[Rfam]
RNA sequence: GGUUGGUCUGAGUACAGUGGUGUUUACAACUAAUUGUUGACAACAAUUUCAGAUUACAGAUUACAGUUACAGAUUUCUUUGUUCCUUCUCCACUCCCACUGCUUCACUCGACCAGCCUUUA
Number, nucleotide and partner (000 for none) at each position: 001g117002g116003u115004u114005g113006g112007u111008c110009u000010g109011a108012g000013u000014a000015c000016a100017g099018u098019g097020g096021u000022g095023u000024u000025u000026a000027c000028a083029a082030c081031u000032a079033a078034u000035u000036g000037u000038u000039g000040a000041c000042a000043a000044c000045a000046a000047u000048u000049u000050c000051a000052g000053a000054u000055u000056a000057c000058a000059g000060a000061u000062u000063a000064c000065a000066g000067u000068u000069a000070c000071a000072g000073a000074u000075u000076u000077c000078u033079u032080u000081g030082u029083u028084c000085c000086u000087u000088c000089u000090c000091c000092a000093c000094u000095c022096c020097c019098a018099c017100u016101g000102c000103u000104u000105c000106a000107c000108u011109c010110g008111a007112c006113c005114a004115g003116c002117c001118u000119u000120u000121a000

A member of the RNA family "Y RNA" from Propithecus coquereli, 121 nucleotides long.
The family's RNA type in Rfam is non-coding RNA gene.
It scores 66 bits against the family's covariance model.
Rfam's curators write: Y RNAs are components of the Ro ribonucleoprotein particle (Ro RNP), in association with Ro60 and La proteins.